The record is a 91-nucleotide RNA from Acer saccharum, which matches "Small nucleolar RNA R160" in Rfam. It scores 48 bits against the family's covariance model.
[Rfam]
RNA sequence: AGCAAAUAUGAUGAAGGAUAUGAUUGGAUCUGAAUUAUUGAUGUGGAAUGAUUUCAUAUCAUUUACUGGUCUUCAAAGUUCUCUGAUUUCU
Numbered sequence: 001a002g003c004a005a006a007u008a009u010g011a012u013g014a015a016g017g018a019u020a021u022g023a024u025u026g027g028a029u030c031u032g033a034a035u036u037a038u039u040g041a042u043g044u045g046g047a048a049u050g051a052u053u054u055c056a057u058a059u060c061a062u063u064u065a066c067u068g069g070u071c072u073u074c075a076a077a078g079u080u081c082u083c084u085g086a087u088u089u090c091u
Stems, first nucleotide, its partner, number of pairs: 001091002004088002

snoR160 is a C/D box small nucleolar RNA, which acts as a methylation guide for 25S ribosomal RNA in plants. snoR160 has been alternatively named snoZ270 in rice.
On this family, see Chen et al., Nucleic Acids Res 2003: "The high diversity of snoRNAs in plants: identification and comparative study of 120 snoRNA genes from Oryza sativa".
Rfam classes the family as a C/D-box small nucleolar RNA.
The family has 9 seed sequences and 799 matches in Rfam 15.1.